The record is a 148-nucleotide RNA sequence from Rhizobium sp. BK251, which matches "FMN riboswitch aptamer (RFN element)" in Rfam. The source organism's lineage runs through Bacteria, Pseudomonadota, Alphaproteobacteria, Rhizobiaceae and Rhizobium.
RNA sequence: UUCCGUUCUCAGGGCGGGGUGAAAGUCCCCACCGGCGGUAAGGGCAUUGCCCAAGCCCGCGAGCGCCUUUCGCCAUAGCGGCGGAAGGGUCAGCAGAUCCGGUGCAACUCCGGAGCCGACGGUAUAGUCCGGAUGAAAGAGAAUGAUC
Numbered sequence: 001u002u003c004c005g006u007u008c009u010c011a012g013g014g015c016g017g018g019g020u021g022a023a024a025g026u027c028c029c030c031a032c033c034g035g036c037g038g039u040a041a042g043g044g045c046a047u048u049g050c051c052c053a054a055g056c057c058c059g060c061g062a063g064c065g066c067c068u069u070u071c072g073c074c075a076u077a078g079c080g081g082c083g084g085a086a087g088g089g090u091c092a093g094c095a096g097a098u099c100c101g102g103u104g105c106a107a108c109u110c111c112g113g114a115g116c117c118g119a120c121g122g123u124a125u126a127g128u129c130c131g132g133a134u135g136a137a138a139g140a141g142a143a144u145g146a147u148c
Stems, first nucleotide, its partner, number of pairs: 004145007017029003031128002033118002035060004055116002063094002098114005120131003
About this RNA
Rfam's curators write: The RFN element is a highly conserved domain that is found frequently in the 5'-untranslated regions of prokaryotic mRNAs that encode for flavin mononucleotide (FMN) biosynthesis and transport proteins. The base pairs follow the family's consensus structure, which is taken from published work.